[Rfam]
RNA sequence: UUCCAUUGCUACUGGUCUACAGCUGUUAUGGACACAGUUGUGACAUGCCUCUCUGGGAAACUGUUAAUACAAUUAAACAUCUCCUUCUUAGCAAAACAGAAAGUAGGUCUAUGUGUUACAGAUACAA
Numbered sequence: 001u002u003c004c005a006u007u008g009c010u011a012c013u014g015g016u017c018u019a020c021a022g023c024u025g026u027u028a029u030g031g032a033c034a035c036a037g038u039u040g041u042g043a044c045a046u047g048c049c050u051c052u053c054u055g056g057g058a059a060a061c062u063g064u065u066a067a068u069a070c071a072a073u074u075a076a077a078c079a080u081c082u083c084c085u086u087c088u089u090a091g092c093a094a095a096a097c098a099g100a101a102a103g104u105a106g107g108u109c110u111a112u113g114u115g116u117u118a119c120a121g122a123u124a125c126a127a
Stems, first nucleotide, its partner, number of pairs: 003056003018042008067116005080107003083103001085101004
RNA: Small nucleolar RNA SNORA41
Organism: Carlito syrichta